[Rfam]
Shown here is a 71-nucleotide RNA sequence from [Clostridium] fimetarium, a member of the family "tRNA".
Nucleotides: 071
Stems, first nucleotide, its partner, number of pairs: 001070007010024004026042005047063005
Number, partner (000 for none) and nucleotide at each position: 001070g002069u003068g004067g005066g006065u007064g008000u009000g010024g011023u012022u013021c014000a015000a016000u017000g018000g019000u020000a021013g022012a023011a024010c025000g026042c027041u028040a029039g030038c031000c032000u033000u034000c035000c036000a037000a038030g039029c040028u041027a042026g043000a044000c045000a046000c047063g048062u049061g050060g051059g052000u053000c054000c055000g056000a057000u058000u059051c060050c061049c062048a063047u064007c065006a066005c067004c068003c069002g070001c071000u
The organism belongs to Lachnoclostridium, within Bacteria. Gene Ontology term of the family: triplet codon-amino acid adaptor activity. Rfam classes the family as a transfer RNA. A search with the family's covariance model found it, with a score of 65 bits.